Overview:
The family of this 60-nucleotide RNA sequence from Fraxinus pennsylvanica is "Plastid-psbA-4 3UTR RNA". Rfam's curators write: Plastid psbA-4 is a non-coding RNA (ncRNA) present in plastids. It was identified in inverted repeat sequences in the 3 prime untranslate region (3UTR) of photosystem II quinone-binding protein (psbA). The literature on the family includes a 2023 paper in Plant Commun by Richter et al., "Retrograde signaling in plants: A critical review focusing on the GUN pathway and beyond".

RNA sequence: GAAAAUAAAGGAGCAAUAAUGCCCUCUUGUUCUAUCAAGAAGGGUUUAUUGCUCCUUUAU
Numbered sequence: 001g002a003a004a005a006u007a008a009a010g011g012a013g014c015a016a017u018a019a020u021g022c023c024c025u026c027u028u029g030u031u032c033u034a035u036c037a038a039g040a041a042g043g044g045u046u047u048a049u050u051g052c053u054c055c056u057u058u059a060u
Stems, first nucleotide, its partner, number of pairs: 007058012022044001025040005